[Rfam]
RNA: Bacterial RNase P class A
Organism: Pseudooceanicola batsensis
RNA sequence: ACGGAGGGCCGGAUGGCCGCGGGCCGGAAGGUCCGAGGAAAGUCCGGACUCCACAAGGCAAAGGUGCCGGGUAACGCCCGGCGGGGGCAACCCCAGGGAAAGCGCCACAGAAAACAGUCCGCCCCGCGGACCGGAGGUUCGCCGAAGGAUCAUCCGCCGGGGUCAGGGUGAAACGGUGCGGUAAGAGCGCACCGCGGGACGGGCAACCGGACCGGCACGGCAAGCCCCACCUGGAGCAAUGCCGAAUAGGGACCUCGCGCGGGCGACCGCAGGGCCGUCUUGGCCCGGAGGUCCGGGUUGGCAGCUUGAGGCGCCGGGGCGAUCCGGCGUCCAGAGGAAUGGUCAUCGAACCGGGGGCGACCCCGGGGAACAGAAUCCGGCUUACAGGCCCUCCGUGCGA
Number, nucleotide and partner (000 for none) at each position: 001a396002c395003g394004g393005a392006g391007g390008g389009c388010c387011g385012g347013a346014u345015g344016g343017c342018c341019g000020c035021g034022g033023g032024c031025c030026g000027g000028a000029a000030g025031g024032u023033c022034c021035g020036a000037g000038g000039a000040a383041a382042g381043u000044c380045c379046g378047g377048a376049c236050u235051c234052c233053a000054c000055a000056a000057g281058g280059c000060a278061a000062a232063g231064g230065u229066g228067c081068c080069g079070g078071g077072u000073a000074a000075c000076g000077c071078c070079c069080g068081g067082c096083g094084g093085g092086g091087g000088c000089a000090a000091c086092c085093c084094c083095a000096g082097g227098g226099a000100a000101a000102g225103c224104g221105c220106c219107a000108c000109a000110g000111a000112a000113a000114a000115c000116a000117g000118u000119c167120c166121g163122c162123c161124c160125c159126g157127c156128g155129g154130a000131c000132c000133g000134g000135a000136g000137g000138u000139u000140c000141g000142c000143c000144g000145a000146a000147g000148g000149a000150u000151c000152a000153u000154c129155c128156g127157c126158c000159g125160g124161g123162g122163u121164c000165a000166g120167g119168g000169u000170g000171a000172a000173a000174c000175g193176g192177u191178g190179c189180g188181g000182u000183a000184a000185g000186a000187g000188c180189g179190c178191a177192c176193c175194g216195c214196g213197g212198g000199a000200c209201g208202g207203g000204c000205a000206a000207c202208c201209g200210g000211a000212c197213c196214g195215g000216c194217a000218c000219g106220g105221c104222a000223a000224g103225c102226c098227c097228c066229a065230c064231c063232u062233g052234g051235a050236g049237c000238a000239a000240u303241g302242c301243c300244g000245a000246a000247u000248a000249g000250g294251g293252a292253c291254c290255u289256c000257g000258c000259g000260c000261g000262g000263g000264c000265g000266a000267c000268c000269g000270c000271a000272g286273g285274g284275c283276c282277g000278u060279c000280u058281u057282g276283g275284c274285c273286c272287g000288g000289a255290g254291g253292u252293c251294c250295g000296g000297g000298u000299u000300g243301g242302c241303a240304g000305c000306u000307u000308g000309a000310g000311g330312c329313g328314c327315c326316g325317g324318g323319g000320c000321g000322a000323u318324c317325c316326g315327g314328c313329g312330u311331c000332c000333a000334g000335a000336g000337g000338a000339a000340u000341g018342g017343u016344c015345a014346u013347c012348g000349a000350a000351c000352c000353g000354g000355g000356g000357g000358c000359g000360a000361c000362c000363c000364c000365g000366g000367g000368g000369a000370a000371c000372a000373g000374a000375a000376u048377c047378c046379g045380g044381c042382u041383u040384a000385c011386a000387g010388g009389c008390c007391c006392u005393c004394c003395g002396u001397g000398c000399g000400a000